This 137-nucleotide RNA sequence from Senna tora belongs to the Rfam family "MIR408 microRNA precursor family". Gene Ontology terms of the family: RISC complex and miRNA-mediated post-transcriptional gene silencing. Rfam 15.1 lists 299 matches to the family in 186 species. For this family Rfam cites "High throughput approaches reveal splicing of primary microRNA transcripts and tissue specific expression of mature microRNAs in Vitis vinifera" (Mica et al., BMC Genomics, 2009). The match comes from Rfam's covariance-model search (94 bits).

RNA sequence: AGUAAGAGACAGGACAAAGGCAGGGAACAGGCAGAGCAUGGGUGGAACUAUCAACAGAAUAGACAAUGGGAGAGAAGGAAUCUGUUGUGGCCUCACUCAUGCACUGCCUCUUCCCUGGCUCUGCCUCUUUCCUUCUC
Numbered sequence: 001a002g003u004a005a006g007a008g009a010c011a012g013g014a015c016a017a018a019g020g021c022a023g024g025g026a027a028c029a030g031g032c033a034g035a036g037c038a039u040g041g042g043u044g045g046a047a048c049u050a051u052c053a054a055c056a057g058a059a060u061a062g063a064c065a066a067u068g069g070g071a072g073a074g075a076a077g078g079a080a081u082c083u084g085u086u087g088u089g090g091c092c093u094c095a096c097u098c099a100u101g102c103a104c105u106g107c108c109u110c111u112u113c114c115c116u117g118g119c120u121c122u123g124c125c126u127c128u129u130u131c132c133u134u135c136u137c
Base pairs, nucleotide, nucleotide: 018120019119021117022116023115024114025113026112027111029109030108031107032106033105034104036102037101038100039099040098041097045093